Rfam assigns this 129-nucleotide RNA sequence from Cnephaeus nilssonii to the family "Small nucleolar RNA SNORA27". Rfam classes the family as an H/ACA-box small nucleolar RNA.
RNA sequence: GUACCCCUUUUCACUUUGCCUAUUGGACUGCUAUGUCUUUACUAGUCAUUCAAGUGGGGCAAAGGCAAUAUCCUUUUAAAGCCCAAGCAAAUUGGGUGUUUGACUUGUAUCCUGUCAGAGGUAACAAAU
Numbered sequence: 001g002u003a004c005c006c007c008u009u010u011u012c013a014c015u016u017u018g019c020c021u022a023u024u025g026g027a028c029u030g031c032u033a034u035g036u037c038u039u040u041a042c043u044a045g046u047c048a049u050u051c052a053a054g055u056g057g058g059g060c061a062a063a064g065g066c067a068a069u070a071u072c073c074u075u076u077u078a079a080a081g082c083c084c085a086a087g088c089a090a091a092u093u094g095g096g097u098g099u100u101u102g103a104c105u106u107g108u109a110u111c112c113u114g115u116c117a118g119a120g121g122u123a124a125c126a127a128a129u
Stems, first nucleotide, its partner, number of pairs: 034061005043052001045050001072121005084107001085105001088102005

Rfam describes the family as follows. ACA27 is a member of the H/ACA class of snoRNA that guide the sites of modification of uridines to pseudouridines.